[Rfam]
RNA: Actino-pnp RNA
Organism: Streptomyces hainanensis
RNA sequence: GCCGGUCCUCGGUAGUGGCCCCCGGGCGUCGCCCCGGGAGCUUCGAUCGAUGGCCGGC
Numbered sequence: 001g002c003c004g005g006u007c008c009u010c011g012g013u014a015g016u017g018g019c020c021c022c023c024g025g026g027c028g029u030c031g032c033c034c035c036g037g038g039a040g041c042u043u044c045g046a047u048c049g050a051u052g053g054c055c056g057g058c
Stems, first nucleotide, its partner, number of pairs: 001058007009050005017042003021038006027031001